[Rfam]
RNA sequence: UGCCGAGAUUUUCCUCGGUAGUUAACUGCAGCCGAUUUCAUUUUUCCUCGGCAGGUAACUACCGAGGAGCAU
Number, nucleotide and partner (000 for none) at each position: 001u000002g000003c000004c000005g000006a000007g000008a000009u000010u000011u000012u068013c067014c000015u065016c064017g063018g062019u061020a060021g059022u058023u057024a056025a000026c054027u053028g052029c051030a000031g000032c000033c000034g000035a000036u000037u000038u000039c000040a000041u000042u000043u000044u000045u000046c000047c000048u000049c000050g000051g029052c028053a027054g026055g000056u024057a023058a022059c021060u020061a019062c018063c017064g016065a015066g000067g013068a012069g000070c000071a000072u000

Shown here is a 72-nucleotide sequence from Medicago truncatula, a member of the family "MIR2629 microRNA precursor family". The match comes from Rfam's covariance-model search (68 bits). Pairs were carried over by alignment from the consensus structure, which was predicted with RNAalifold. NCBI's taxonomy places the organism under Eukaryota, Euphyllophyta, Magnoliopsida, Pentapetalae, Medicago.